Rfam assigns this 203-nucleotide RNA from Leptocoma aspasia to the family "Small nucleolar RNA SNORA74". The literature on the family includes a 1998 paper in RNA by Bortolin and Kiss, "Human U19 intron-encoded snoRNA is processed from a long primary transcript that possesses little potential for protein coding". Gene Ontology terms of the family: nucleolus and RNA processing.

[Rfam]
RNA sequence: UCCAGUGGUAGUCAGCUGUCCAGAGCAAUACCAUGCCUGUGAUAGUGUUACACUGCUGGGAUAUAAAGAUCAGUCAUUUCUUCUGGCUGCUGUUGUCACCGUUCUGGAGGCAGCUGGUGCCAGCAAGAAGUGACAUUGUGCUUCCCUGAGAGCGCACUAAAGGUUCUCUUUUCCUCUUUGGUGCUAGUCUGGAAGCCUACACA
Numbered sequence: 001u002c003c004a005g006u007g008g009u010a011g012u013c014a015g016c017u018g019u020c021c022a023g024a025g026c027a028a029u030a031c032c033a034u035g036c037c038u039g040u041g042a043u044a045g046u047g048u049u050a051c052a053c054u055g056c057u058g059g060g061a062u063a064u065a066a067a068g069a070u071c072a073g074u075c076a077u078u079u080c081u082u083c084u085g086g087c088u089g090c091u092g093u094u095g096u097c098a099c100c101g102u103u104c105u106g107g108a109g110g111c112a113g114c115u116g117g118u119g120c121c122a123g124c125a126a127g128a129a130g131u132g133a134c135a136u137u138g139u140g141c142u143u144c145c146c147u148g149a150g151a152g153c154g155c156a157c158u159a160a161a162g163g164u165u166c167u168c169u170u171u172u173c174c175u176c177u178u179u180g181g182u183g184c185u186a187g188u189c190u191g192g193a194a195g196c197c198u199a200c201a202c203a
Base pairs, nucleotide, nucleotide: 001060002059003058004057005056006055007054008053009052011051012050015046016045017044018043019042020041021039022038023037073134074133075132076131084128088123089121091119092118094116095115097109099107100106138198140196141195142194143193144192145191154184155183156182158180159179160178161177162176163175

A search with the family's covariance model found it, with a score of 96 bits. Rfam's curators write: U19 belongs to the H/ACA class of snoRNAs. snoRNAs bind a number of proteins (including dyskerin, Gar1p and Nop10p in the case of the H/ACA class) to form snoRNP complexes. This class are thought to guide the sites of modification of uridines to pseudouridines by forming direct base pairing interactions with substrate RNAs. Targets may include ribosomal and spliceosomal RNAs but the exact functions of many snoRNAs, including U19, are not confirmed. The family has 24 seed sequences and 1,348 matches in Rfam 15.1.